[Rfam]
The family of this 46-nucleotide RNA sequence from Methanolobus psychrophilus is "eL15-Euryarchaeota ribosomal protein leader".
For this family Rfam cites "Discovery of 20 novel ribosomal leader candidates in bacteria and archaea" (Eckert and Weinberg, BMC Microbiol, 2020).
Lineage of the source: Archaea > Methanobacteriati > Methanobacteriota > Methanolobus > Methanolobus psychrophilus.

RNA sequence: CGGGAUGUGUCCCGUGGGAAUGUGGCUUUUGAAGCUGAACCGUGAA
Numbered sequence: 001c002g003g004g005a006u007g008u009g010u011c012c013c014g015u016g017g018g019a020a021u022g023u024g025g026c027u028u029u030u031g032a033a034g035c036u037g038a039a040c041c042g043u044g045a046a
Base pairs, nucleotide, nucleotide: 001014002013003012004011005010017041018040024036025035026034027033028032
The family's RNA type in Rfam is cis-regulatory leader.